The family of this 33-nucleotide RNA sequence is "XIST RNA A repeat".
For this family Rfam cites "The Xist RNA A-repeat comprises a novel AUCG tetraloop fold and a platform for multimerization" (Duszczyk et al., RNA, 2011).
It is one of the family's seed sequences.
Pairs were carried over by alignment from the consensus structure, which was predicted with CMfinder.

[Rfam]
RNA sequence: UGGUCCAUCGGGACCUCGGAUACCUGCGUUUAG
Numbered sequence: 001u002g003g004u005c006c007a008u009c010g011g012g013a014c015c016u017c018g019g020a021u022a023c024c025u026g027c028g029u030u031u032a033g
Stems, first nucleotide, its partner, number of pairs: 003014004017026003